[Rfam]
RNA sequence: GCAAUAGCUGACUAGGGUUCCGGUCCACCGAUCAACUGAUCGCUGGAUGACUGGUCCGAGAGUUGGCGACCUCCUUCGAGGUUACACGGCGGGAUAAAAGCCCGGGAGAA
Number, nucleotide and partner (000 for none) at each position: 001g000002c000003a000004a000005u000006a000007g067008c066009u065010g064011a063012c062013u000014a000015g057016g056017g000018u000019u000020c054021c053022g051023g048024u047025c046026c045027a044028c000029c000030g000031a000032u000033c000034a000035a000036c000037u000038g000039a000040u000041c000042g000043c000044u027045g026046g025047a024048u023049g000050a000051c022052u000053g021054g020055u000056c016057c015058g000059a000060g000061a000062g012063u011064u010065g009066g008067c007068g083069a082070c081071c080072u079073c078074c000075u000076u000077c000078g073079a072080g071081g070082u069083u068084a000085c105086a000087c108088g000089g000090c000091g103092g102093g101094a000095u000096a000097a000098a000099a000100g000101c093102c092103c091104g000105g085106g000107a000108g087109a000110a000